[Rfam]
Rfam assigns this 177-nucleotide sequence from Streptomyces alkaliterrae to the family "c-di-AMP riboswitch aptamer (ydaO/yuaA leader)". Rfam links the family to the GO terms cyclic-di-AMP binding and regulation of gene expression.
RNA sequence: GGAAACAGAUCACCGCACGGCAGGAGCGGGGGAACCAGGUAAGUGCCGAGUCGUGGCGCACACGACCGGCUUGGGGUGAAGCCACCGCCCGGGGCGCACAGCGCGAACCGGAGAGGUGGCCGGGCAUCUCCAGCCCGAAUCCGACAGCUCACCUCGUAGGCGUAGGAGAGGACAACA
Numbered sequence: 001g002g003a004a005a006c007a008g009a010u011c012a013c014c015g016c017a018c019g020g021c022a023g024g025a026g027c028g029g030g031g032g033a034a035c036c037a038g039g040u041a042a043g044u045g046c047c048g049a050g051u052c053g054u055g056g057c058g059c060a061c062a063c064g065a066c067c068g069g070c071u072u073g074g075g076g077u078g079a080a081g082c083c084a085c086c087g088c089c090c091g092g093g094g095c096g097c098a099c100a101g102c103g104c105g106a107a108c109c110g111g112a113g114a115g116g117u118g119g120c121c122g123g124g125c126a127u128c129u130c131c132a133g134c135c136c137g138a139a140u141c142c143g144a145c146a147g148c149u150c151a152c153c154u155c156g157u158a159g160g161c162g163u164a165g166g167a168g169a170g171g172a173c174a175a176c177a
Stems, first nucleotide, its partner, number of pairs: 026157006036073005074142003082119004122136004